[Rfam]
RNA sequence: UUUGACUACUAGGGGUGCCGAUGGGAUCGGCUGAGAGGAAAGAAUUCAAUCUUUCUAACCCUUUUGAACCUGAUCUAGUUCGUACUAGCGGAGGGAAGUAGCACUUCUUUAAC
Dot-bracket structure: .....(((((((((..(((((.....)))))......(((((........)))))...))))......(((...((((......))))...)))..)))))............
A member of the RNA family "TPP riboswitch aptamer (THI element)" from Amphibacillus xylanus, 113 nucleotides long. The source organism's lineage runs through Bacteria, Bacillati, Bacilli, Bacillaceae and Amphibacillus xylanus. The match comes from Rfam's covariance-model search (78 bits). Gene Ontology term of the family: thiamine pyrophosphate binding.